ASpks TB sRNA: a 75-nucleotide RNA sequence from Streptomyces viridochromogenes. A reference for the family is Arnvig and Young (2009), "Identification of small RNAs in Mycobacterium tuberculosis", Mol Microbiol. It is annotated as an antisense RNA. The base pairs follow the family's consensus structure, which is taken from published work. The sequence is in the family's curated seed alignment.
[Rfam]
RNA sequence: CUUCAACGACCCCAGCCACAACGGCUGUUCGUCGGUGUGGUCCUGACCGUAAGUGUUCAGCAGCGCCUGCGCCUC
Number, nucleotide and partner (000 for none) at each position: 001c000002u000003u000004c000005a000006a000007c000008g000009a000010c000011c000012c000013c000014a026015g025016c024017c023018a000019c000020a000021a000022c000023g017024g016025c015026u014027g000028u000029u000030c000031g000032u000033c069034g000035g000036u000037g000038u065039g064040g000041u000042c000043c060044u059045g058046a000047c000048c055049g054050u000051a000052a000053g000054u049055g048056u000057u000058c045059a044060g043061c000062a000063g000064c039065g038066c000067c000068u000069g033070c000071g000072c000073c000074u000075c000